[Rfam]
RNA sequence: GGUGGUAGGCCCACCGAAAUCGCCAUACAGGUGGAGAUUUCAAACUACCUUAAGGUGCUAUAGUCAAAAGCUAUGGUAUUGAGCGUUAAGGAAAAGGCAGUAUAAAACUGUCAGGU
Numbered sequence: 001g002g003u004g005g006u007a008g009g010c011c012c013a014c015c016g017a018a019a020u021c022g023c024c025a026u027a028c029a030g031g032u033g034g035a036g037a038u039u040u041c042a043a044a045c046u047a048c049c050u051u052a053a054g055g056u057g058c059u060a061u062a063g064u065c066a067a068a069a070g071c072u073a074u075g076g077u078a079u080u081g082a083g084c085g086u087u088a089a090g091g092a093a094a095a096g097g098c099a100g101u102a103u104a105a106a107a108c109u110g111u112c113a114g115g116u
Stems, first nucleotide, its partner, number of pairs: 001015005016041006023034004046115001048091006054080002057077003061073004096112006
Record summary
Shown here is a 116-nucleotide RNA from Fonticella tunisiensis, a member of the family "Group II catalytic intron D1-D4-2". Rfam links the family to the GO term Group II intron splicing. It scores 116 bits against the family's covariance model. Rfam describes the family as follows. Group II introns are found in rRNA, tRNA and mRNA of organelles in fungi, plants and protists, and also in mRNA in bacteria.